The family of this 99-nucleotide RNA is "DUF3800-V RNA". Pairs were carried over by alignment from the consensus structure, which is taken from published work. It is annotated as a small RNA. The sequence is in the family's curated seed alignment.

RNA sequence: AAAAACGAACGGUAAGACCGUUGCAAGCUGUUCGGGGUGUUCCCUUCCAUAGGUUGGCAUGAGCCUCGACGCAAGAAGCUUGUAAGGCACGCUCUUUUU
Numbered sequence: 001a002a003a004a005a006c007g008a009a010c011g012g013u014a015a016g017a018c019c020g021u022u023g024c025a026a027g028c029u030g031u032u033c034g035g036g037g038u039g040u041u042c043c044c045u046u047c048c049a050u051a052g053g054u055u056g057g058c059a060u061g062a063g064c065c066u067c068g069a070c071g072c073a074a075g076a077a078g079c080u081u082g083u084a085a086g087g088c089a090c091g092c093u094c095u096u097u098u099u
Stems, first nucleotide, its partner, number of pairs: 001099005010091001024082006031076001032069007043057002047053002